[Rfam]
Rfam assigns this 63-nucleotide RNA sequence from Caenorhabditis remanei to the family "mir-51 microRNA precursor family". Rfam's curators put it in the seed alignment.

RNA sequence: UACCCGUAGCUCCUAUCCAUGUUACUAGCAGAUAGAGUGAACAUGGAAGUUGGUACAGGUGUA
Numbered sequence: 001u002a003c004c005c006g007u008a009g010c011u012c013c014u015a016u017c018c019a020u021g022u023u024a025c026u027a028g029c030a031g032a033u034a035g036a037g038u039g040a041a042c043a044u045g046g047a048a049g050u051u052g053g054u055a056c057a058g059g060u061g062u063a
Stems, first nucleotide, its partner, number of pairs: 001061004006056003010052001013049002016047008024038003